[Rfam]
RNA sequence: CCGGACGCCGAACGGGUCCGGCGGGACAUUGAGGGCGUCGGCUCUCCUCCGACGCUUCUCAUGCCCAAAUUGCUUCAUCAGGAGGAUUUGGAAAUGAGAA
Numbered sequence: 001c002c003g004g005a006c007g008c009c010g011a012a013c014g015g016g017u018c019c020g021g022c023g024g025g026a027c028a029u030u031g032a033g034g035g036c037g038u039c040g041g042c043u044c045u046c047c048u049c050c051g052a053c054g055c056u057u058c059u060c061a062u063g064c065c066c067a068a069a070u071u072g073c074u075u076c077a078u079c080a081g082g083a084g085g086a087u088u089u090g091g092a093a094a095u096g097a098g099a100a
Stems, first nucleotide, its partner, number of pairs: 001021006008015002033057009058098005065091007073084003
RNA: Repression of heat shock gene expression (ROSE) element
Organism: Sphingomonas sp. Leaf198